RNA sequence: UAUUGACUUCUGAGCAAACCUUGCGCUAACAGGACUACCCAUGUAGAACUGUAUAAGACGGUGACAUAAUUUAACGUUAUUUUUUU
Numbered sequence: 001u002a003u004u005g006a007c008u009u010c011u012g013a014g015c016a017a018a019c020c021u022u023g024c025g026c027u028a029a030c031a032g033g034a035c036u037a038c039c040c041a042u043g044u045a046g047a048a049c050u051g052u053a054u055a056a057g058a059c060g061g062u063g064a065c066a067u068a069a070u071u072u073a074a075c076g077u078u079a080u081u082u083u084u085u086u
Stems, first nucleotide, its partner, number of pairs: 020033004048062005
This 86-nucleotide sequence from Leuconostoc carnosum belongs to the Rfam family "RNA anti-toxin A". Gene Ontology terms of the family: negative regulation of translation and mRNA binding. The match comes from Rfam's covariance-model search (53 bits). It is annotated as an antitoxin RNA. The source organism's lineage runs through Bacteria, Bacillati, Bacilli, Lactobacillales and Leuconostoc carnosum.